[Rfam]
RNA sequence: UAGUGGUGAUGACCCUCUUAGGACACCUUUGGAACACCUAUGAGAUCAUCAUCCCCUCAGCUGA
Numbered sequence: 001u002a003g004u005g006g007u008g009a010u011g012a013c014c015c016u017c018u019u020a021g022g023a024c025a026c027c028u029u030u031g032g033a034a035c036a037c038c039u040a041u042g043a044g045a046u047c048a049u050c051a052u053c054c055c056c057u058c059a060g061c062u063g064a
Base pairs, nucleotide, nucleotide: 001063002062003061004060